[Rfam]
The family of this 87-nucleotide RNA from Rynchops niger is "mir-726 microRNA precursor family". The family has 2 seed sequences and 131 matches in Rfam 15.1.

RNA sequence: UGGGUCGCGCGACAGGAAUUCCGCUAGUUCUGAACUGUUUUGGCUGGCAAAAAGCUCACUACUGGCAGAACUCGGCCGCGCGGCCCC
Numbered sequence: 001u002g003g004g005u006c007g008c009g010c011g012a013c014a015g016g017a018a019u020u021c022c023g024c025u026a027g028u029u030c031u032g033a034a035c036u037g038u039u040u041u042g043g044c045u046g047g048c049a050a051a052a053a054g055c056u057c058a059c060u061a062c063u064g065g066c067a068g069a070a071c072u073c074g075g076c077c078g079c080g081c082g083g084c085c086c087c
Stems, first nucleotide, its partner, number of pairs: 003085009013075001015073002019070003023066006031058003035054002038052002